[Rfam]
RNA: HNH endonuclease-associated RNA and ORF (HEARO) RNA
RNA sequence: GUCAACAACCCCGUCCUAAACGACGGGGCUUGCAAGGAGAAAUCCAAACAAGCCCAAUGUUGACCAGACCAAGCGGUAACCAUCCCGCUACGUUGCGUAGAAGUUAAAGACCCACCCUGGAAUGCUUCCUCAGUUCCAGGCUCUGGAAGUUGCAGAUGCAGACACGCUUCGGGUGAGCACGAAACGGUUUGCGACCGAAGGCCUUCGUUGACCUUCAGGCUGCUACUCAACAUGGUCGAGGGGAGCGGUGU
Numbered sequence: 001g002u003c004a005a006c007a008a009c010c011c012c013g014u015c016c017u018a019a020a021c022g023a024c025g026g027g028g029c030u031u032g033c034a035a036g037g038a039g040a041a042a043u044c045c046a047a048a049c050a051a052g053c054c055c056a057a058u059g060u061u062g063a064c065c066a067g068a069c070c071a072a073g074c075g076g077u078a079a080c081c082a083u084c085c086c087g088c089u090a091c092g093u094u095g096c097g098u099a100g101a102a103g104u105u106a107a108a109g110a111c112c113c114a115c116c117c118u119g120g121a122a123u124g125c126u127u128c129c130u131c132a133g134u135u136c137c138a139g140g141c142u143c144u145g146g147a148a149g150u151u152g153c154a155g156a157u158g159c160a161g162a163c164a165c166g167c168u169u170c171g172g173g174u175g176a177g178c179a180c181g182a183a184a185c186g187g188u189u190u191g192c193g194a195c196c197g198a199a200g201g202c203c204u205u206c207g208u209u210g211a212c213c214u215u216c217a218g219g220c221u222g223c224u225a226c227u228c229a230a231c232a233u234g235g236u237c238g239a240g241g242g243g244a245g246c247g248g249u250g251u
Base pairs, nucleotide, nucleotide: 001064002063003062004061005060006059007058010028011027012025013024015022029052030051031050032049067237068236069235070234071233072089073088074087075086076085092231093230094229095228097226098225099224100223102221112146113145116140117139118138119137120136121135122134123133126245127244128243129242130241131240149195150194151193152192153191154190155189156188157187165186166185168183169182170181171180172178